[Rfam]
RNA sequence: GUCGGUUUGUUAAACAGAACCGGGUAUGCGAGCAGUUUUAGUAAAGCAGUCUGCAGUGUAAGAGUUAUCUCUGAUAUCCCUUCUUCAGUAUCGCCUUCCUGAGUGCCCCAUAACAUCUGUACACAAACCUGUUGCCCUCAGGGCGUUAAUAUCGAAUGAAGGAAAGACAAAUGUCUGCAAAACUGACUGGUUUAGUAAAAUGGUUCAACGCUGAGAAAGGUUUCGGCUUUAUUUCUCCGGCUGACGGCAGCAAAGAUGUAUUCGUGCACUUCUCCGCUAUCCAGAACCAGGGUUUCAAAACGCUGGAAGAAGGUCAGAGCGUUGAGUUCACCAUUGAAAACGGUCCGAAAGGCCCGGCUGCUGCUAACGUAAACGUACGCUAAGCUGCCAGAAUGCAAAAAACCCGCCUUAAUGGCGGGUUUUUUAUU
Numbered sequence: 001g002u003c004g005g006u007u008u009g010u011u012a013a014a015c016a017g018a019a020c021c022g023g024g025u026a027u028g029c030g031a032g033c034a035g036u037u038u039u040a041g042u043a044a045a046g047c048a049g050u051c052u053g054c055a056g057u058g059u060a061a062g063a064g065u066u067a068u069c070u071c072u073g074a075u076a077u078c079c080c081u082u083c084u085u086c087a088g089u090a091u092c093g094c095c096u097u098c099c100u101g102a103g104u105g106c107c108c109c110a111u112a113a114c115a116u117c118u119g120u121a122c123a124c125a126a127a128c129c130u131g132u133u134g135c136c137c138u139c140a141g142g143g144c145g146u147u148a149a150u151a152u153c154g155a156a157u158g159a160a161g162g163a164a165a166g167a168c169a170a171a172u173g174u175c176u177g178c179a180a181a182a183c184u185g186a187c188u189g190g191u192u193u194a195g196u197a198a199a200a201u202g203g204u205u206c207a208a209c210g211c212u213g214a215g216a217a218a219g220g221u222u223u224c225g226g227c228u229u230u231a232u233u234u235c236u237c238c239g240g241c242u243g244a245c246g247g248c249a250g251c252a253a254a255g256a257u258g259u260a261u262u263c264g265u266g267c268a269c270u271u272c273u274c275c276g277c278u279a280u281c282c283a284g285a286a287c288c289a290g291g292g293u294u295u296c297a298a299a300a301c302g303c304u305g306g307a308a309g310a311a312g313g314u315c316a317g318a319g320c321g322u323u324g325a326g327u328u329c330a331c332c333a334u335u336g337a338a339a340a341c342g343g344u345c346c347g348a349a350a351g352g353c354c355c356g357g358c359u360g361c362u363g364c365u366a367a368c369g370u371a372a373a374c375g376u377a378c379g380c381u382a383a384g385c386u387g388c389c390a391g392a393a394u395g396c397a398a399a400a401a402a403c404c405c406g407c408c409u410u411a412a413u414g415g416c417g418g419g420u421u422u423u424u425u426a427u428u
Stems, first nucleotide, its partner, number of pairs: 004021003007017003029239002034236002045230002048228004054220001057218001065214003069210001072207003076204003082173001084171002088168001094162005100156001103122004134144003175190003242336003246332002255263002268322002271319001273318002276315001277313002280307005341356003346352001357381001359379002362375002365372001385391002397425012
RNA: cspA thermoregulator
Organism: Pantoea alhagi